[Rfam]
Fluoride riboswitch aptamer (crcB RNA motif): a 68-nucleotide sequence from Halothiobacillus neapolitanus. Its family is annotated with positive regulation of gene expression and response to fluoride in the Gene Ontology. The family's consensus secondary structure is taken from published work. The source organism's lineage runs through Bacteria, Pseudomonadati, Gammaproteobacteria, Halothiobacillus and Halothiobacillus neapolitanus.

RNA sequence: CAACGAAAUGGCGAUGGAGUUCGCCGUAACCGCCCCCACUUCUGGUGGCUGAUGACUCCUGAAGGCGC
Numbered sequence: 001c002a003a004c005g006a007a008a009u010g011g012c013g014a015u016g017g018a019g020u021u022c023g024c025c026g027u028a029a030c031c032g033c034c035c036c037c038a039c040u041u042c043u044g045g046u047g048g049c050u051g052a053u054g055a056c057u058c059c060u061g062a063a064g065g066c067g068c
Stems, first nucleotide, its partner, number of pairs: 010025004016059006032049003
Dot-bracket structure: .........[[[[..((((((]]]]......(((............)))....)))))).........